[Rfam]
RNA sequence: GGCCUUGCCUCUUGGCAAAAAACGAAACAUUCAAAACGGUGUUGGUAUCUGCCCCGGCAGUAGAAGACGCUAAGUACGAAUAGCAAAAUA
Number, nucleotide and partner (000 for none) at each position: 001g000002g000003c000004c000005u000006u017007g016008c015009c014010u000011c000012u000013u000014g009015g008016c007017a006018a000019a000020a000021a000022a000023c000024g000025a000026a000027a000028c000029a000030u000031u000032c000033a000034a000035a000036a000037c000038g000039g000040u069041g068042u067043u000044g000045g000046u000047a000048u062049c000050u000051g058052c057053c000054c000055c000056g000057g052058c051059a000060g000061u000062a048063g000064a000065a000066g000067a042068c041069g040070c000071u000072a000073a000074g000075u000076a000077c000078g000079a000080a000081u000082a000083g000084c000085a000086a000087a000088a000089u000090a000